[Rfam]
The record is a 62-nucleotide sequence from Brevibacillus panacihumi, which matches "RAGATH-18 RNA" in Rfam. Rfam's curators write: Actinobacteria, Firmicutes, Fusobacteria, Thermotogae (1 example). The source organism's lineage runs through Bacteria, Bacillati, Bacillota, Paenibacillaceae and Brevibacillus panacihumi.

RNA sequence: CCUGUGGAGUGUCAUACCAAACGCAAGUAGCCCAGGCAAAAGCGGGCACGUCGAAGCAGGAA
Numbered sequence: 001c002c003u004g005u006g007g008a009g010u011g012u013c014a015u016a017c018c019a020a021a022c023g024c025a026a027g028u029a030g031c032c033c034a035g036g037c038a039a040a041a042g043c044g045g046g047c048a049c050g051u052c053g054a055a056g057c058a059g060g061a062a
Stems, first nucleotide, its partner, number of pairs: 001060005009049005022044003030037002